[Rfam]
RNA sequence: AAGUGAGGUAGAGGCGCGGUAUUUAACAGUCUUUAGCAGAGUUUGAGAGACGUUGAAGCUAGAGAGAAGGAAAUAUCGCCGAAGUGAGUAAAUUGUUCUCAACAAUUGCUUGCUGGGUCUGUAGUGAAGAACUGCAGGACUGUCUCAAUAAGUUUACCAGCUUAUUGAGUUGUGCUAUCUCAUCU
Numbered sequence: 001a002a003g004u005g006a007g008g009u010a011g012a013g014g015c016g017c018g019g020u021a022u023u024u025a026a027c028a029g030u031c032u033u034u035a036g037c038a039g040a041g042u043u044u045g046a047g048a049g050a051c052g053u054u055g056a057a058g059c060u061a062g063a064g065a066g067a068a069g070g071a072a073a074u075a076u077c078g079c080c081g082a083a084g085u086g087a088g089u090a091a092a093u094u095g096u097u098c099u100c101a102a103c104a105a106u107u108g109c110u111u112g113c114u115g116g117g118u119c120u121g122u123a124g125u126g127a128a129g130a131a132c133u134g135c136a137g138g139a140c141u142g143u144c145u146c147a148a149u150a151a152g153u154u155u156a157c158c159a160g161c162u163u164a165u166u167g168a169g170u171u172g173u174g175c176u177a178u179c180u181c182a183u184c185u
Stems, first nucleotide, its partner, number of pairs: 006180006016079009031064007083114009093105003115141002118138008144169009